[Rfam]
RNA sequence: CCAGUUGACCGGGUGGCCGCUGGCAGUGGGGUAACCUGCUGCUGGAGGAAAGUCCGGGCUCCAUCGAAACACGGUGCCGGUUAAUGGCCGGCGAGGGCGACCUCAGGGAAAGUGCCACAGAAAGUAUACCGCCGUGCCUCGGCACGGUAAGGGUGAAAGGGUGCGGUAAGAGCGCACCGGGUGUCCAGCAAUGGAGACCGCACGGUAAACCCCACCGGGAGCAAGACCAAAUAGGGAUGACGCGGGGUUUCGACCCCAGCCGGUUUUGAGGCCAGAUCAUCCGGGUUGGUUGCACGAGGCGUCUGGUAACAGGCGUCGCAGAUGAAUGGUCACCACGUACGCGCCUUCGGGCACGUGCCCUACAGAACCCGGCUUAUAGGUCAACUGGCGUU
Numbered sequence: 001c002c003a004g005u006u007g008a009c010c011g012g013g014u015g016g017c018c019g020c021u022g023g024c025a026g027u028g029g030g031g032u033a034a035c036c037u038g039c040u041g042c043u044g045g046a047g048g049a050a051a052g053u054c055c056g057g058g059c060u061c062c063a064u065c066g067a068a069a070c071a072c073g074g075u076g077c078c079g080g081u082u083a084a085u086g087g088c089c090g091g092c093g094a095g096g097g098c099g100a101c102c103u104c105a106g107g108g109a110a111a112g113u114g115c116c117a118c119a120g121a122a123a124g125u126a127u128a129c130c131g132c133c134g135u136g137c138c139u140c141g142g143c144a145c146g147g148u149a150a151g152g153g154u155g156a157a158a159g160g161g162u163g164c165g166g167u168a169a170g171a172g173c174g175c176a177c178c179g180g181g182u183g184u185c186c187a188g189c190a191a192u193g194g195a196g197a198c199c200g201c202a203c204g205g206u207a208a209a210c211c212c213c214a215c216c217g218g219g220a221g222c223a224a225g226a227c228c229a230a231a232u233a234g235g236g237a238u239g240a241c242g243c244g245g246g247g248u249u250u251c252g253a254c255c256c257c258a259g260c261c262g263g264u265u266u267u268g269a270g271g272c273c274a275g276a277u278c279a280u281c282c283g284g285g286u287u288g289g290u291u292g293c294a295c296g297a298g299g300c301g302u303c304u305g306g307u308a309a310c311a312g313g314c315g316u317c318g319c320a321g322a323u324g325a326a327u328g329g330u331c332a333c334c335a336c337g338u339a340c341g342c343g344c345c346u347u348c349g350g351g352c353a354c355g356u357g358c359c360c361u362a363c364a365g366a367a368c369c370c371g372g373c374u375u376a377u378a379g380g381u382c383a384a385c386u387g388g389c390g391u392u
Stems, first nucleotide, its partner, number of pairs: 001388010011377001012334007020045009050375003054372005059221004069267001072217005077091005092106001093104004107212002112210002114206003129152002131148007160178006179201001180199003184195004225291004235282006260275001262273003298317008
A member of the RNA family "Bacterial RNase P class A" from Devosia litorisediminis, 392 nucleotides long. The family's RNA type in Rfam is ribozyme. Pairs were carried over by alignment from the consensus structure, which is taken from published work. The match comes from Rfam's covariance-model search (314 bits). Ribonuclease P (RNase P) is a ubiquitous endoribonuclease, found in archaea, bacteria and eukarya as well as chloroplasts and mitochondria. Its best characterised activity is the generation of mature 5'-ends of tRNAs by cleaving the 5'-leader elements of precursor-tRNAs. Cellular RNase Ps are ribonucleoproteins.